U4 spliceosomal RNA: a 145-nucleotide RNA from Callorhinus ursinus. The base pairs follow the family's consensus structure, which is taken from published work. The match comes from Rfam's covariance-model search (76 bits). NCBI's taxonomy places the organism under Eukaryota, Chordata, Boreoeutheria, Caniformia, Callorhinus.
[Rfam]
RNA sequence: AGCUUUGCUCAGUGGCAGUAUCGUAGCCAAUGAGGUUUAUCCGAGGCGCGAUUAUUGCUAAUUGAAAGAUGGGGAAAGUUUCUUUCUUCUACUUAUUAACCUAAUAGCUAUAACAACCAGAAAAUUCUGCAAGUUAGUGUUUUAA
Numbered sequence: 001a002g003c004u005u006u007g008c009u010c011a012g013u014g015g016c017a018g019u020a021u022c023g024u025a026g027c028c029a030a031u032g033a034g035g036u037u038u039a040u041c042c043g044a045g046g047c048g049c050g051a052u053u054a055u056u057g058c059u060a061a062u063u064g065a066a067a068g069a070u071g072g073g074g075a076a077a078g079u080u081u082c083u084u085u086c087u088u089c090u091a092c093u094u095a096u097u098a099a100c101c102u103a104a105u106a107g108c109u110a111u112a113a114c115a116a117c118c119a120g121a122a123a124a125u126u127c128u129g130c131a132a133g134u135u136a137g138u139g140u141u142u143u144a145a
Stems, first nucleotide, its partner, number of pairs: 020052005026047003034042002085121003090116001093113003134145004